[Rfam]
Nucleotides: 075
Base pairs, nucleotide, nucleotide: 001074002073003072004071005070006069007068010027011026012025013024029045030044031043032042033041051067052066053065054064055063
Number, partner (000 for none) and nucleotide at each position: 001074g002073g003072g004071c005070a006069a007068g008000u009000a010027g011026a012025u013024c014000a015000g016000c017000c018000c019000g020000g021000u022000u023000a024013g025012a026011u027010c028000g029045c030044u031043u032042c033041g034000u035000u036000c037000g038000c039000a040000a041033c042032g043031a044030a045029g046000a047000g048000g049000c050000c051067g052066c053065g054064a055063g056000u057000c058000c059000g060000a061000a062000u063055c064054u065053c066052g067051c068007c069006u070005u071004g072003u073002c074001c075000a